[Rfam]
RNA sequence: UUGAAGCUCCAUCUACAAAUGGAUAAGACUUGGUCUUAGUGUAUACGAUUGAAAAAUAAAAAGGAGCAAUAACCUCUUUCUUGUUCUAUCAAGAGGGUGCUAUUGCUCCUUUU
Numbered sequence: 001u002u003g004a005a006g007c008u009c010c011a012u013c014u015a016c017a018a019a020u021g022g023a024u025a026a027g028a029c030u031u032g033g034u035c036u037u038a039g040u041g042u043a044u045a046c047g048a049u050u051g052a053a054a055a056a057u058a059a060a061a062a063g064g065a066g067c068a069a070u071a072a073c074c075u076c077u078u079u080c081u082u083g084u085u086c087u088a089u090c091a092a093g094a095g096g097g098u099g100c101u102a103u104u105g106c107u108c109c110u111u112u113u
Stems, first nucleotide, its partner, number of pairs: 008023005060112012075097002078095005